[Rfam]
Source information
Shown here is a 168-nucleotide RNA sequence from Triticum aestivum, a member of the family "MIR2118 microRNA precursor family". NCBI's taxonomy places the organism under Eukaryota, Spermatophyta, Magnoliopsida, Triticodae, Triticum.
RNA sequence: AUCUGGAAGAGGAAGAAAAUGAGCAUUUAACAGCAUUGGACAUGGGAACAUGGAGGAAGGCCUAAACUAGUGUGUCCCUGUCCAACUAGUGCCGGCAUUUGUUUUGGAAUUUUUUCGAUGCCUCUCAUGCCUAUUACUCUUAGGUGCUCCUUCCUCUCCCUUGUGAUU
Numbered sequence: 001a002u003c004u005g006g007a008a009g010a011g012g013a014a015g016a017a018a019a020u021g022a023g024c025a026u027u028u029a030a031c032a033g034c035a036u037u038g039g040a041c042a043u044g045g046g047a048a049c050a051u052g053g054a055g056g057a058a059g060g061c062c063u064a065a066a067c068u069a070g071u072g073u074g075u076c077c078c079u080g081u082c083c084a085a086c087u088a089g090u091g092c093c094g095g096c097a098u099u100u101g102u103u104u105u106g107g108a109a110u111u112u113u114u115u116c117g118a119u120g121c122c123u124c125u126c127a128u129g130c131c132u133a134u135u136a137c138u139c140u141u142a143g144g145u146g147c148u149c150c151u152u153c154c155u156c157u158c159c160c161u162u163g164u165g166a167u168u
Stems, first nucleotide, its partner, number of pairs: 009159001011157003015153003021149003026144005032138002035135001037133003041129007049120003053116001055115006
Dot-bracket structure: ........(.(((.(((...(((..(((((.((.(.(((.(((((((.(((.(.((((((.................................................))))))).)))..))))))).))).).)).)))))..))).))).))).).........